Rfam assigns this 105-nucleotide sequence from Microbacterium lemovicicum to the family "Glycine riboswitch aptamer". Rfam links the family to the GO term glycine biosynthetic process. A search with the family's covariance model found it, with a score of 44 bits. The organism belongs to Microbacterium, within Bacteria.

RNA sequence: GCCACUCUGAAAAGCGAUGGCGUCCACCCGUCAUCCGCCGACGGUGAAACUCGUCUCCUCACGGAGGAGCGAGGAAUCUCUCAGGCCCAUGACAGAGGGGGAGUU
Numbered sequence: 001g002c003c004a005c006u007c008u009g010a011a012a013a014g015c016g017a018u019g020g021c022g023u024c025c026a027c028c029c030g031u032c033a034u035c036c037g038c039c040g041a042c043g044g045u046g047a048a049a050c051u052c053g054u055c056u057c058c059u060c061a062c063g064g065a066g067g068a069g070c071g072a073g074g075a076a077u078c079u080c081u082c083a084g085g086c087c088c089a090u091g092a093c094a095g096a097g098g099g100g101g102a103g104u105u
Stems, first nucleotide, its partner, number of pairs: 002100002005097005016035004037086003040082002044080001046078001050073005